[Rfam]
RNA: L31-Actinobacteria ribosomal protein leader
Organism: Streptomyces sp. NP160
RNA sequence: CCGGCUCCGGCUCACGUGCGCUCCGCUCCGAGGGAGCAGCACGACCCGGCGGCC
Numbered sequence: 001c002c003g004g005c006u007c008c009g010g011c012u013c014a015c016g017u018g019c020g021c022u023c024c025g026c027u028c029c030g031a032g033g034g035a036g037c038a039g040c041a042c043g044a045c046c047c048g049g050c051g052g053c054c
Stems, first nucleotide, its partner, number of pairs: 003054003007049004015043005020037005